[Rfam]
RNA sequence: UGUGUGUGCUGAUUUGGCAGUGUAUUGUUAGUUAGCUGUUCUUUAUACACCAGCAACUGACUACACUGCCACAUUAGCACAUCACU
Numbered sequence: 001u002g003u004g005u006g007u008g009c010u011g012a013u014u015u016g017g018c019a020g021u022g023u024a025u026u027g028u029u030a031g032u033u034a035g036c037u038g039u040u041c042u043u044u045a046u047a048c049a050c051c052a053g054c055a056a057c058u059g060a061c062u063a064c065a066c067u068g069c070c071a072c073a074u075u076a077g078c079a080c081a082u083c084a085c086u
Stems, first nucleotide, its partner, number of pairs: 002085003005081009015071010027061007040049001042047001

Rfam assigns this 86-nucleotide RNA sequence from Eudyptula minor to the family "mir-449 microRNA precursor family". Taxonomically the source falls in Eudyptula (Eukaryota, Metazoa, Theropoda, Neognathae). Gene Ontology terms of the family: miRNA-mediated post-transcriptional gene silencing and RISC complex. The literature on the family includes a 2010 paper in BMC Genomics by Linsen et al., "Small RNA expression and strain specificity in the rat". The family's consensus secondary structure was predicted with RNAalifold.